[Rfam]
This 595-nucleotide part of an RNA from Hanseniaspora uvarum belongs to the Rfam family "Eukaryotic large subunit ribosomal RNA".
The family is grouped with related families in Rfam's "LSU clan".
It scores 3363 bits against the family's covariance model.
RNA sequence: CGGGGAAAGAAGACCCUGUUGAGCUUGACUCUAGUUUGACAUUGUGAAGAGACAUAGAGGGUGUAGCAUAAGGGGGAGCUUCGGCGCCAGUGAAAUACCUCUACCUUUAUCGUUUCUUUACUUAUUCAAUAAUGCGGAACUGGAAUUCAUUUUCCUCUUUCAAGUAUUUAACGUCCUUUACGGGCUGAUCCGGGUUGAAGACAUUGUCAGGUGGGGAGUUUGGCUGGGGCGGCACAUCUGUUAAACGAUAACGCAGAUGUCCUAAGGGGGACUCAUGGAGAACAGAAAUCUCCAGUAGAACAAAAGGGUAAAAGUCCCCUUGAUUUUGAUUUUCAGUGUGAAUACAAACCAUGAAAGUGUGGCCUAUCGAUCCUUUAGAUCCUCGGAAUUUGAGGCUAGAGGUGCCAGAAAAGUUACCACAGGGAUAACUGGCUUGUGGCAGUCAAGCGUUCAUAGCGACAUUGCUUUUUGAUUCUUCGAUGUCGGCUCUUCCUAUCAUACCGAAGCAGAAUUCGGUAAGCGUUGGAUUGUUCACCCACUAAUAGGGAACGUGAGCUGGGUUUAGACCGUCGUGAGACAGGUUAGUUUUACCCUA
Numbered sequence: 001c002g003g004g005g006a007a008a009g010a011a012g013a014c015c016c017u018g019u020u021g022a023g024c025u026u027g028a029c030u031c032u033a034g035u036u037u038g039a040c041a042u043u044g045u046g047a048a049g050a051g052a053c054a055u056a057g058a059g060g061g062u063g064u065a066g067c068a069u070a071a072g073g074g075g076g077a078g079c080u081u082c083g084g085c086g087c088c089a090g091u092g093a094a095a096u097a098c099c100u101c102u103a104c105c106u107u108u109a110u111c112g113u114u115u116c117u118u119u120a121c122u123u124a125u126u127c128a129a130u131a132a133u134g135c136g137g138a139a140c141u142g143g144a145a146u147u148c149a150u151u152u153u154c155c156u157c158u159u160u161c162a163a164g165u166a167u168u169u170a171a172c173g174u175c176c177u178u179u180a181c182g183g184g185c186u187g188a189u190c191c192g193g194g195u196u197g198a199a200g201a202c203a204u205u206g207u208c209a210g211g212u213g214g215g216g217a218g219u220u221u222g223g224c225u226g227g228g229g230c231g232g233c234a235c236a237u238c239u240g241u242u243a244a245a246c247g248a249u250a251a252c253g254c255a256g257a258u259g260u261c262c263u264a265a266g267g268g269g270g271a272c273u274c275a276u277g278g279a280g281a282a283c284a285g286a287a288a289u290c291u292c293c294a295g296u297a298g299a300a301c302a303a304a305a306g307g308g309u310a311a312a313a314g315u316c317c318c319c320u321u322g323a324u325u326u327u328g329a330u331u332u333u334c335a336g337u338g339u340g341a342a343u344a345c346a347a348a349c350c351a352u353g354a355a356a357g358u359g360u361g362g363c364c365u366a367u368c369g370a371u372c373c374u375u376u377a378g379a380u381c382c383u384c385g386g387a388a389u390u391u392g393a394g395g396c397u398a399g400a401g402g403u404g405c406c407a408g409a410a411a412a413g414u415u416a417c418c419a420c421a422g423g424g425a426u427a428a429c430u431g432g433c434u435u436g437u438g439g440c441a442g443u444c445a446a447g448c449g450u451u452c453a454u455a456g457c458g459a460c461a462u463u464g465c466u467u468u469u470u471g472a473u474u475c476u477u478c479g480a481u482g483u484c485g486g487c488u489c490u491u492c493c494u495a496u497c498a499u500a501c502c503g504a505a506g507c508a509g510a511a512u513u514c515g516g517u518a519a520g521c522g523u524u525g526g527a528u529u530g531u532u533c534a535c536c537c538a539c540u541a542a543u544a545g546g547g548a549a550c551g552u553g554a555g556c557u558g559g560g561u562u563u564a565g566a567c568c569g570u571c572g573u574g575a576g577a578c579a580g581g582u583u584a585g586u587u588u589u590a591c592c593c594u595a
Stems, first nucleotide, its partner, number of pairs: 003594003007589002015423004020419002022415005028219004035211007044121010054110007071102005078085002125199005135192004142155004173185004222235001223233003236258006261362002267319006273299002276294006300309002324348003329343004350359003373401006381395004432473001434471001436470001438466006447457002484559001485557004489551001490548005497522001500517006524538003528534001565583004569578003